This 600-nucleotide part of an RNA from Candidatus Syntropharchaeum butanivorans belongs to the Rfam family "Archaeal small subunit ribosomal RNA". The source organism's lineage runs through Archaea, Methanobacteriati, Halobacteriota, Candidatus Syntropharchaeales and Candidatus Syntropharchaeum.
RNA sequence: UGGCGGGGGAGCACCACAACGGGUGGAUGCUGCGGUUUAAUUGGAUACAACGCCGGAAAUCUCACCGGGGGAGACAGCGAGAUGAAGGUCAGGCUGAAGACCUUACCAGAUUAGCUGAGAGGAGGUGCAUGGCCGUCGUCAGUUCGUACUGUGAAGCAUCCUGUUAAGUCAGGCAACGAGCGAGACCCGCGCCCACAAUUGCCAGCAUGUCCUCCGGGACGAUGGGCACAUUGUGGGGACCGCCUCUGCUAAAGAGGAGGAGGGAGCGGGCAACGGUAGGUCAGUAUGCCCCGAAUCUCCCGGGCUACACGCGGCAUACAAUGGACGGGACAAUGGGUAUCGACCCCGAGAGGGGGAGGCAAUCCCAUAAACCCGUUCGUAGUUCGGAUUGAGGGCUGCAACUCGCCCUCAUGAAGCUGGAAUCCGUAGUAAUCGCGUGUCAACAUCACGCGGUGAAUGUGUCCCUGCUCCUUGCACACACCGCCCGUCAAACCACCCGAGUGGGGUCUGGGUGAGGCUGUGGUUCUUGCCACAUUCGAACCUAGGUUCCGCAAGGGGGGUUAAGUCGUAACAAGGUAGCCGUAGGGGAAUCUGCGGCUG
Numbered sequence: 001u002g003g004c005g006g007g008g009g010a011g012c013a014c015c016a017c018a019a020c021g022g023g024u025g026g027a028u029g030c031u032g033c034g035g036u037u038u039a040a041u042u043g044g045a046u047a048c049a050a051c052g053c054c055g056g057a058a059a060u061c062u063c064a065c066c067g068g069g070g071g072a073g074a075c076a077g078c079g080a081g082a083u084g085a086a087g088g089u090c091a092g093g094c095u096g097a098a099g100a101c102c103u104u105a106c107c108a109g110a111u112u113a114g115c116u117g118a119g120a121g122g123a124g125g126u127g128c129a130u131g132g133c134c135g136u137c138g139u140c141a142g143u144u145c146g147u148a149c150u151g152u153g154a155a156g157c158a159u160c161c162u163g164u165u166a167a168g169u170c171a172g173g174c175a176a177c178g179a180g181c182g183a184g185a186c187c188c189g190c191g192c193c194c195a196c197a198a199u200u201g202c203c204a205g206c207a208u209g210u211c212c213u214c215c216g217g218g219a220c221g222a223u224g225g226g227c228a229c230a231u232u233g234u235g236g237g238g239a240c241c242g243c244c245u246c247u248g249c250u251a252a253a254g255a256g257g258a259g260g261a262g263g264g265a266g267c268g269g270g271c272a273a274c275g276g277u278a279g280g281u282c283a284g285u286a287u288g289c290c291c292c293g294a295a296u297c298u299c300c301c302g303g304g305c306u307a308c309a310c311g312c313g314g315c316a317u318a319c320a321a322u323g324g325a326c327g328g329g330a331c332a333a334u335g336g337g338u339a340u341c342g343a344c345c346c347c348g349a350g351a352g353g354g355g356g357a358g359g360c361a362a363u364c365c366c367a368u369a370a371a372c373c374c375g376u377u378c379g380u381a382g383u384u385c386g387g388a389u390u391g392a393g394g395g396c397u398g399c400a401a402c403u404c405g406c407c408c409u410c411a412u413g414a415a416g417c418u419g420g421a422a423u424c425c426g427u428a429g430u431a432a433u434c435g436c437g438u439g440u441c442a443a444c445a446u447c448a449c450g451c452g453g454u455g456a457a458u459g460u461g462u463c464c465c466u467g468c469u470c471c472u473u474g475c476a477c478a479c480a481c482c483g484c485c486c487g488u489c490a491a492a493c494c495a496c497c498c499g500a501g502u503g504g505g506g507u508c509u510g511g512g513u514g515a516g517g518c519u520g521u522g523g524u525u526c527u528u529g530c531c532a533c534a535u536u537c538g539a540a541c542c543u544a545g546g547u548u549c550c551g552c553a554a555g556g557g558g559g560g561u562u563a564a565g566u567c568g569u570a571a572c573a574a575g576g577u578a579g580c581c582g583u584a585g586g587g588g589a590a591u592c593u594g595c596g597g598c599u600g
Stems, first nucleotide, its partner, number of pairs: 001478002003475003007472007016462002020426005025319001027317008035308002041056004065303007075117004079112002087107003091103003121292002124290004130286002132281003135277004142181006149156002160173004187269004192237007202226002206224003209220004240260002243257005323378007335366003340359002344355004385416001390411007432454008481575001483572001486568002489565001491562004496557003501552013516537002519534006577600010